This 78-nucleotide sequence from Vibrio aquimaris belongs to the Rfam family "c-di-GMP-I riboswitch aptamer".
RNA sequence: GGACAAACUGGGCAAACCUGUCGUGAGGCGGGGACGCAAAGUGACAGCACAGCUUAAGCUGUGGGCUGCAUUGCAUUA
Numbered sequence: 001g002g003a004c005a006a007a008c009u010g011g012g013c014a015a016a017c018c019u020g021u022c023g024u025g026a027g028g029c030g031g032g033g034a035c036g037c038a039a040a041g042u043g044a045c046a047g048c049a050c051a052g053c054u055u056a057a058g059c060u061g062u063g064g065g066c067u068g069c070a071u072u073g074c075a076u077u078a
Stems, first nucleotide, its partner, number of pairs: 012037002017032006040072004045068003048063006
The family's consensus secondary structure is taken from published work.
Taxonomically the source falls in Vibrio (Bacteria, Gammaproteobacteria, Vibrionales, Vibrionaceae).